[Rfam]
This 109-nucleotide RNA from Nonlabens spongiae belongs to the Rfam family "6S-Flavo RNA". A search with the family's covariance model found it, with a score of 100 bits. The source organism's lineage runs through Bacteria, Pseudomonadati, Bacteroidota, Flavobacteriaceae and Nonlabens.
RNA sequence: ACUCAACACGUAAUUCUUUAAAAAAGGUGAGUCGUGGUUGUAAAAGCAAGCCGGUCUUGAACCGGAUCCUUGAUCAGCCAGUUAGCCUUAAACUUUAUUUAAGGAGUUC
Numbered sequence: 001a002c003u004c005a006a007c008a009c010g011u012a013a014u015u016c017u018u019u020a021a022a023a024a025a026g027g028u029g030a031g032u033c034g035u036g037g038u039u040g041u042a043a044a045a046g047c048a049a050g051c052c053g054g055u056c057u058u059g060a061a062c063c064g065g066a067u068c069c070u071u072g073a074u075c076a077g078c079c080a081g082u083u084a085g086c087c088u089u090a091a092a093c094u095u096u097a098u099u100u101a102a103g104g105a106g107u108u109c
Stems, first nucleotide, its partner, number of pairs: 024089005035080005044071003051065004